[Rfam]
RNA sequence: GGGUAGGCUAUAGCUCAGGGAGUUACUCCGUUAACACUUAUACAGCUAAUCUUCUGUAUCCCAGGAUCGGGUCUAGAGUGAAGAAAUUCUCCCGGCGCAGUCCUAACCCCUUU
Numbered sequence: 001g002g003g004u005a006g007g008c009u010a011u012a013g014c015u016c017a018g019g020g021a022g023u024u025a026c027u028c029c030g031u032u033a034a035c036a037c038u039u040a041u042a043c044a045g046c047u048a049a050u051c052u053u054c055u056g057u058a059u060c061c062c063a064g065g066a067u068c069g070g071g072u073c074u075a076g077a078g079u080g081a082a083g084a085a086a087u088u089c090u091c092c093c094g095g096c097g098c099a100g101u102c103c104u105a106a107c108c109c110c111u112u113u
Stems, first nucleotide, its partner, number of pairs: 002108002004105004013096003019092004027071004
RNA: Vault RNA